[Rfam]
RNA sequence: CCGUCUUCGACGUAAUGCUUACGGGAGGUUUCGUCGAAAAUGGAGUACAUGAUGCCACCCGCUUUUGACAGCGCAUUGCCGGAGUGUGGCCAGAUGAUGACGUUGGAUUCAUCGGUAAAGCGGCGACCGUGUUGGUCAACCCACAGAUAGGGCUGACGCGCGGCUGCCAGCAGGUGUGAAUUCGGCGCGUAGUCUGGCAGGCCGGGGCGAUAGGCUUGCAGCAGGCCCAGACCGUCCGGUUUGGCUCCGGCUUUCCAGGCCAUAGUAAUUCCGUCGCCGUCUUUACCGACAUUGCCGACCAUAAUGGUAUCGGGGAAGGCGGCAUAUUUUUGCAGC
Numbered sequence: 001c002c003g004u005c006u007u008c009g010a011c012g013u014a015a016u017g018c019u020u021a022c023g024g025g026a027g028g029u030u031u032c033g034u035c036g037a038a039a040a041u042g043g044a045g046u047a048c049a050u051g052a053u054g055c056c057a058c059c060c061g062c063u064u065u066u067g068a069c070a071g072c073g074c075a076u077u078g079c080c081g082g083a084g085u086g087u088g089g090c091c092a093g094a095u096g097a098u099g100a101c102g103u104u105g106g107a108u109u110c111a112u113c114g115g116u117a118a119a120g121c122g123g124c125g126a127c128c129g130u131g132u133u134g135g136u137c138a139a140c141c142c143a144c145a146g147a148u149a150g151g152g153c154u155g156a157c158g159c160g161c162g163g164c165u166g167c168c169a170g171c172a173g174g175u176g177u178g179a180a181u182u183c184g185g186c187g188c189g190u191a192g193u194c195u196g197g198c199a200g201g202c203c204g205g206g207g208c209g210a211u212a213g214g215c216u217u218g219c220a221g222c223a224g225g226c227c228c229a230g231a232c233c234g235u236c237c238g239g240u241u242u243g244g245c246u247c248c249g250g251c252u253u254u255c256c257a258g259g260c261c262a263u264a265g266u267a268a269u270u271c272c273g274u275c276g277c278c279g280u281c282u283u284u285a286c287c288g289a290c291a292u293u294g295c296c297g298a299c300c301a302u303a304a305u306g307g308u309a310u311c312g313g314g315g316a317a318g319g320c321g322g323c324a325u326a327u328u329u330u331u332g333c334a335g336c
Base pairs, nucleotide, nucleotide: 002012003011004010005009021274022273023272024271025270026269029179030178032176033175034174035173040050041049042048054167055166058163059162060160061159062158065139066138067137068136069134070133071132072131073130074129078127080125081124084121085120089116090115091114093113094112095111096110097109144155145154146153184236185235186234187233190229192226193225194224195223196222197219198218199217200216201215202214203213238261239260240259241258242257243256244255276323277322278321279320280319281318282317283316286313287312288311289310294308295307296306297305
Dot-bracket structure: .((((...))))........((((((..((.((((....(((.....)))...((..(((((..((((((((((...(.((..((...(((.(((((...........))))))))...))..)).).)))))).))))....(((......)))..))).))..)).....)))).))....((((..(.((((((((((((.........)))))))..)))))..)...)))).(((((((..........))))))).......)))))).((((((((..((((....((((.......)))).))))..)))))))).............
The record is a 336-nucleotide RNA from Pectobacterium carotovorum, which matches "Soft rot Enterobacteriaceae Rev 44 asRNA" in Rfam. Rfam's curators put it in the seed alignment. Gene Ontology term of the family: cellular response to starvation. By type it is an antisense RNA. For this family Rfam cites "Discovery and profiling of small RNAs responsive to stress conditions in the plant pathogen Pectobacterium atrosepticum" (Kwenda et al., BMC Genomics, 2016). From bacteria cultured under starvation conditions. Antisense to ECA0910.